[Rfam]
RNA sequence: ACAAAUGUUUUCUAGGGUUCCGCAGCAGAACUGGCCUGUGACCAAGAGAAAACUCACGGUUUUAAACCGUGUCACGGAAGGACAAAAGCCUGGGAGAU
Numbered sequence: 001a002c003a004a005a006u007g008u009u010u011u012c013u014a015g016g017g018u019u020c021c022g023c024a025g026c027a028g029a030a031c032u033g034g035c036c037u038g039u040g041a042c043c044a045a046g047a048g049a050a051a052a053c054u055c056a057c058g059g060u061u062u063u064a065a066a067c068c069g070u071g072u073c074a075c076g077g078a079a080g081g082a083c084a085a086a087a088g089c090c091u092g093g094g095a096g097a098u
Stems, first nucleotide, its partner, number of pairs: 007053006015043002020040001021038001022036001023033003055071007073093001075096001079091003
The record is a 98-nucleotide RNA sequence from Ruminiclostridium sufflavum, which matches "Guanidine-I riboswitch aptamer" in Rfam.
Lineage of the source: Bacteria > Bacillota > Eubacteriales > Oscillospiraceae > Ruminiclostridium sufflavum.
It scores 73 bits against the family's covariance model.